[Rfam]
RNA: Alphaproteobacterial sRNA ar9
Organism: Cohaesibacter sp. CAU 1516
RNA sequence: AUAAAUAUAAGAGAUAUGCUCACCACAGUUAUCUCAUCUCGCGCGGAAAAUGUCUUGGGAGGAUAAAUGAUCUCUGGCGCGCUCUAGGGCUGCUGCCGCUCUCAACUAGCAACCAAAAAGCAAGUCGAGCAAAGAGAUCACGUCGCGAUACUUACAGAAGCAAGGCCUUUGGCCUUGCUUUUUUU
Numbered sequence: 001a002u003a004a005a006u007a008u009a010a011g012a013g014a015u016a017u018g019c020u021c022a023c024c025a026c027a028g029u030u031a032u033c034u035c036a037u038c039u040c041g042c043g044c045g046g047a048a049a050a051u052g053u054c055u056u057g058g059g060a061g062g063a064u065a066a067a068u069g070a071u072c073u074c075u076g077g078c079g080c081g082c083u084c085u086a087g088g089g090c091u092g093c094u095g096c097c098g099c100u101c102u103c104a105a106c107u108a109g110c111a112a113c114c115a116a117a118a119a120g121c122a123a124g125u126c127g128a129g130c131a132a133a134g135a136g137a138u139c140a141c142g143u144c145g146c147g148a149u150a151c152u153u154a155c156a157g158a159a160g161c162a163a164g165g166c167c168u169u170u171g172g173c174c175u176u177g178c179u180u181u182u183u184u185u
Stems, first nucleotide, its partner, number of pairs: 004185002011035006042147004052064004069139005076097003079093003099129003159179008